[Rfam]
RNA: Small nucleolar RNA SNORA69
Organism: Probosciger aterrimus
RNA sequence: AAAGCAGGCUGCAAUUGCAGUGCUUCCUCCUGUGGGAGUACUGCCAUUCUCCUGCUGAGAGAGACUCUGUUAAUGCUCUCCUUGGUUUCACCUGGACAGUGGUGAAGCCGUUUGUUCUUAACAGGUACAAGU
Numbered sequence: 001a002a003a004g005c006a007g008g009c010u011g012c013a014a015u016u017g018c019a020g021u022g023c024u025u026c027c028u029c030c031u032g033u034g035g036g037a038g039u040a041c042u043g044c045c046a047u048u049c050u051c052c053u054g055c056u057g058a059g060a061g062a063g064a065c066u067c068u069g070u071u072a073a074u075g076c077u078c079u080c081c082u083u084g085g086u087u088u089c090a091c092c093u094g095g096a097c098a099g100u101g102g103u104g105a106a107g108c109c110g111u112u113u114g115u116u117c118u119u120a121a122c123a124g125g126u127a128c129a130a131g132u
Base pairs, nucleotide, nucleotide: 003056004055005054006053007052008051018043019042020041021040022039023038024037025036026035066125067124068123069122070121071120072119073118075116083110084109085108086107087106088105089104090103091102092101